[Rfam]
RNA sequence: AUAAAAUAGCAUAUAGUAAGUCGUAUAAUACCGGGAAUAUGGCCUGGAAGUUUCUACCGGAGCACCUUAAAUGCUUCGACUACGAUUCCGCGUAAAAGAUAU
Numbered sequence: 001a002u003a004a005a006a007u008a009g010c011a012u013a014u015a016g017u018a019a020g021u022c023g024u025a026u027a028a029u030a031c032c033g034g035g036a037a038u039a040u041g042g043c044c045u046g047g048a049a050g051u052u053u054c055u056a057c058c059g060g061a062g063c064a065c066c067u068u069a070a071a072u073g074c075u076u077c078g079a080c081u082a083c084g085a086u087u088c089c090g091c092g093u094a095a096a097a098g099a100u101a102u
Stems, first nucleotide, its partner, number of pairs: 019087007029049001031047005058078007
RNA: Purine riboswitch aptamer
Organism: Sporosarcina sp. HYO08